[Rfam]
RNA: Small nucleolar RNA SNORA73 family
RNA sequence: CCAACGUGGAUAUCCCAUGGGCUUGUUCUUGUGGGCUCUGUCCAGGUGGCGCAUGGGAGCAUCGCCCUGUGAGGCGCAGUGAUGUAUAAUCCCCUUCCACAACGUUGGAGAGCAAGCAUGUCCCCGGCCAUUAGGCUGGUGUGGGCAGCAUCCUGUAUAUUCCUAUAGCUUCCCAGAGCCCUCGGGCAGUGACUGGGGAGACAAACCAUGCAGGGUACAAAA
Dot-bracket structure: ((((((((((((.(((..(((....)))....)))...)))))..((((.....(((((.((.((.............))...)).)..))))...)))).)))))))...........................................(((((((..........((((((...(((....))).......)))))).......)))))))........